[Rfam]
RNA sequence: AGAGGCGUGUGUGCCUUUUCUGCACACUCGGUAUAGACACACACACGUCAGUAGAGGCACAUGUGCCUUU
Numbered sequence: 001a002g003a004g005g006c007g008u009g010u011g012u013g014c015c016u017u018u019u020c021u022g023c024a025c026a027c028u029c030g031g032u033a034u035a036g037a038c039a040c041a042c043a044c045a046c047g048u049c050a051g052u053a054g055a056g057g058c059a060c061a062u063g064u065g066c067c068u069u070u
Base pairs, nucleotide, nucleotide: 002069003068004067005066006065007064008063009062010061011060012059013058014057015056016055017054018053020051021050022049025047030042031040032039